[Rfam]
RNA sequence: UUUCGUAAUACGCGAAGUCCGGCGAGUGUGCGACGGUGCAGGUCGGCGCGCUGUGGAGCCGGGGACCCAUUCGCGUCAUCGCCGUGUGACGCAAGUCCCUGGGGUGAAUCGGUGCAUAGUGUGUUGUUGUCAUGAGUGGCUUUUUGCCGCCGUGACGCGAUGCGUGUCGCACUGUAGGGCGUUAAUACUCCCCCGCCCGAACCCGUCAGCUAACCCGGUAGGCGGCUGGAGGAGAGGCU
Numbered sequence: 001u002u003u004c005g006u007a008a009u010a011c012g013c014g015a016a017g018u019c020c021g022g023c024g025a026g027u028g029u030g031c032g033a034c035g036g037u038g039c040a041g042g043u044c045g046g047c048g049c050g051c052u053g054u055g056g057a058g059c060c061g062g063g064g065a066c067c068c069a070u071u072c073g074c075g076u077c078a079u080c081g082c083c084g085u086g087u088g089a090c091g092c093a094a095g096u097c098c099c100u101g102g103g104g105u106g107a108a109u110c111g112g113u114g115c116a117u118a119g120u121g122u123g124u125u126g127u128u129g130u131c132a133u134g135a136g137u138g139g140c141u142u143u144u145u146g147c148c149g150c151c152g153u154g155a156c157g158c159g160a161u162g163c164g165u166g167u168c169g170c171a172c173u174g175u176a177g178g179g180c181g182u183u184a185a186u187a188c189u190c191c192c193c194c195g196c197c198c199g200a201a202c203c204c205g206u207c208a209g210c211u212a213a214c215c216c217g218g219u220a221g222g223c224g225g226c227u228g229g230a231g232g233a234g235a236g237g238c239u
Stems, first nucleotide, its partner, number of pairs: 011224003018057003058219006068101002102204003110174006177198004
Rfam assigns this 239-nucleotide sequence from Actinocrinis puniceicyclus to the family "c-di-AMP riboswitch aptamer (ydaO/yuaA leader)". A search with the family's covariance model found it, with a score of 62 bits. The source organism's lineage runs through Bacteria, Bacillati, Actinomycetota, Actinospicaceae and Actinocrinis. Rfam links the family to the GO terms regulation of gene expression and cyclic-di-AMP binding.